[Rfam]
RNA: mir-17 microRNA precursor family
RNA sequence: CGUGCGGCGCCAAAGUGCUCACAGUGCAGGUAGUACUUGACCGAUCUACUGCAGUUUGCGCACUUCAGGUUUUGCAAG
Numbered sequence: 001c002g003u004g005c006g007g008c009g010c011c012a013a014a015g016u017g018c019u020c021a022c023a024g025u026g027c028a029g030g031u032a033g034u035a036c037u038u039g040a041c042c043g044a045u046c047u048a049c050u051g052c053a054g055u056u057u058g059c060g061c062a063c064u065u066c067a068g069g070u071u072u073u074g075c076a077a078g
Stems, first nucleotide, its partner, number of pairs: 004075004009070003013065006020058002023055001025053003029050005